The record is a 64-nucleotide RNA sequence from Rhizobacter gummiphilus, which matches "Betaproteobacteria toxic small RNA" in Rfam. The family has 51 seed sequences and 951 matches in Rfam 15.1. NCBI's taxonomy places the organism under Bacteria, Pseudomonadati, Betaproteobacteria, Burkholderiales, Rhizobacter. The family's consensus secondary structure was predicted with WAR. It scores 67 bits against the family's covariance model. Rfam's curators write: Overexpression in amino aid rich medium attenuates growth, suggesting role in repressing amino acid intake and metabolism.
[Rfam]
RNA sequence: UGUCUCCUCCACCUCCUCCAUUGGUGGAUUCAGCCCAAGGCAGCAAUGCCUUGGGCUUUUUUUC
Numbered sequence: 001u002g003u004c005u006c007c008u009c010c011a012c013c014u015c016c017u018c019c020a021u022u023g024g025u026g027g028a029u030u031c032a033g034c035c036c037a038a039g040g041c042a043g044c045a046a047u048g049c050c051u052u053g054g055g056c057u058u059u060u061u062u063u064c
Stems, first nucleotide, its partner, number of pairs: 008028006032057008